Rfam assigns this 169-nucleotide RNA from Cohnella nanjingensis to the family "c-di-AMP riboswitch aptamer (ydaO/yuaA leader)". This family represents a conserved RNA structure found upstream of the ydaO and yuaA genes in Bacillus subtilis and related genes in other bacteria. Taxonomically the source falls in Cohnella (Bacteria, Bacillati, Bacilli, Caryophanales). Pairs were carried over by alignment from the consensus structure.

[Rfam]
RNA sequence: AAAUCCUAAUCGCUGAAUCCCGUCUUCGGAGGGGAUCGGGGGACCCAACAGGACCGCGGCCGCAAGCUGCGUCCAAGGGGUGAAUCGCAUCGGCAAGCGCCGAUCGCGUAGGGCUGCUCUCCGUGCCCGAAUCCGUCAGCUAACCUCGUAAGCGUCCGGAAGAGGAUAU
Numbered sequence: 001a002a003a004u005c006c007u008a009a010u011c012g013c014u015g016a017a018u019c020c021c022g023u024c025u026u027c028g029g030a031g032g033g034g035a036u037c038g039g040g041g042g043a044c045c046c047a048a049c050a051g052g053a054c055c056g057c058g059g060c061c062g063c064a065a066g067c068u069g070c071g072u073c074c075a076a077g078g079g080g081u082g083a084a085u086c087g088c089a090u091c092g093g094c095a096a097g098c099g100c101c102g103a104u105c106g107c108g109u110a111g112g113g114c115u116g117c118u119c120u121c122c123g124u125g126c127c128c129g130a131a132u133c134c135g136u137c138a139g140c141u142a143a144c145c146u147c148g149u150a151a152g153c154g155u156c157c158g159g160a161a162g163a164g165g166a167u168a169u
Stems, first nucleotide, its partner, number of pairs: 011154004018035003037148005046077001078134003086108003111128004